[Rfam]
RNA sequence: CAGUCACAGUGUGGGGUCACAGUAGGAGCGUUCUUGUCGCGACCCCUGUCAGAUUUUAUCUAAAUAUGCAAUCCUACU
Numbered sequence: 001c002a003g004u005c006a007c008a009g010u011g012u013g014g015g016g017u018c019a020c021a022g023u024a025g026g027a028g029c030g031u032u033c034u035u036g037u038c039g040c041g042a043c044c045c046c047u048g049u050c051a052g053a054u055u056u057u058a059u060c061u062a063a064a065u066a067u068g069c070a071a072u073c074c075u076a077c078u
Stems, first nucleotide, its partner, number of pairs: 013046006021078007028040003050068002053065004

Shown here is a 78-nucleotide sequence from Erpetoichthys calabaricus, a member of the family "Mammalian CPEB3 ribozyme". The match comes from Rfam's covariance-model search (52 bits). Pairs were carried over by alignment from the consensus structure, which is taken from published work.